[Rfam]
RNA sequence: AAUCUGUUUCAGGGCGGGGUGAAAUUCCCCACUGGCGGUGAAAAGCAAAGGCUGCGAGUCCGCGAGCCUGCGCCGGAGGCACAGGCAGAAUGGGUUUUCAAAUCCCAUACCAACGGUAUAGUCCGGAUAAAAGAAACAAAAA
Numbered sequence: 001a002a003u004c005u006g007u008u009u010c011a012g013g014g015c016g017g018g019g020u021g022a023a024a025u026u027c028c029c030c031a032c033u034g035g036c037g038g039u040g041a042a043a044a045g046c047a048a049a050g051g052c053u054g055c056g057a058g059u060c061c062g063c064g065a066g067c068c069u070g071c072g073c074c075g076g077a078g079g080c081a082c083a084g085g086c087a088g089a090a091u092g093g094g095u096u097u098u099c100a101a102a103u104c105c106c107a108u109a110c111c112a113a114c115g116g117u118a119u120a121g122u123c124c125g126g127a128u129a130a131a132a133g134a135a136a137c138a139a140a141a142a
Base pairs, nucleotide, nucleotide: 003140005138006137007136008135009134010133017029018028019027031122032121033112034111035063036062037061038060058110059109066086067085068084090108091107092106093105094104114125115124116123
The record is a 142-nucleotide sequence from Guopingia tenuis, which matches "FMN riboswitch aptamer (RFN element)" in Rfam. Pairs were carried over by alignment from the consensus structure, which is taken from published work. It scores 101 bits against the family's covariance model. The source organism's lineage runs through Bacteria, Bacillati, Christensenellales, Christensenellaceae and Guopingia. Rfam describes the family as follows. The RFN element is a highly conserved domain that is found frequently in the 5'-untranslated regions of prokaryotic mRNAs that encode for flavin mononucleotide (FMN) biosynthesis and transport proteins. This element is a metabolite-dependent riboswitch that directly binds FMN in the absence of proteins.